[Rfam]
RNA sequence: UGGGUACUGUUUUCUUAUGGUGUAAAGAUUAUUUUGGAUUCUAGCACCAUACGAAAUCAGUUCUUG
Numbered sequence: 001u002g003g004g005u006a007c008u009g010u011u012u013u014c015u016u017a018u019g020g021u022g023u024a025a026a027g028a029u030u031a032u033u034u035u036g037g038a039u040u041c042u043a044g045c046a047c048c049a050u051a052c053g054a055a056a057u058c059a060g061u062u063c064u065u066g
Stems, first nucleotide, its partner, number of pairs: 001066004007060003011056004017050006026042003